The family of this 200-nucleotide sequence from Oryza meyeriana is "MIR1435 microRNA precursor family". The family has 3 seed sequences and 1,765 matches in Rfam 15.1. The match comes from Rfam's covariance-model search (100 bits). Pairs were carried over by alignment from the consensus structure, which was predicted with RNAalifold. Rfam links the family to the GO terms RISC complex and miRNA-mediated post-transcriptional gene silencing.
[Rfam]
RNA sequence: UAGUUUAGUUGUAAGUCAAACUUCUUUAACUUUGACCAAGUUUAUAUAAAAAUACACCAACAUCUAUGAUAACAAAUAAAUGCACUAUGAAGACAUAUUUCGUGGAGAAUUUAAUGAAACUAAUUUGACAUUGUAGAUAUUGUUGUAUUUUUCUAUAAACUAUGUUAAAGUUAGAGAAGUUUGACUUAGGACAAAACUAA
Numbered sequence: 001u002a003g004u005u006u007a008g009u010u011g012u013a014a015g016u017c018a019a020a021c022u023u024c025u026u027u028a029a030c031u032u033u034g035a036c037c038a039a040g041u042u043u044a045u046a047u048a049a050a051a052a053u054a055c056a057c058c059a060a061c062a063u064c065u066a067u068g069a070u071a072a073c074a075a076a077u078a079a080a081u082g083c084a085c086u087a088u089g090a091a092g093a094c095a096u097a098u099u100u101c102g103u104g105g106a107g108a109a110u111u112u113a114a115u116g117a118a119a120c121u122a123a124u125u126u127g128a129c130a131u132u133g134u135a136g137a138u139a140u141u142g143u144u145g146u147a148u149u150u151u152u153c154u155a156u157a158a159a160c161u162a163u164g165u166u167a168a169a170g171u172u173a174g175a176g177a178a179g180u181u182u183g184a185c186u187u188a189g190g191a192c193a194a195a196a197c198u199a200a
Stems, first nucleotide, its partner, number of pairs: 005195002008192002012188015031169005045155002048152005055145002059141002062138007073127005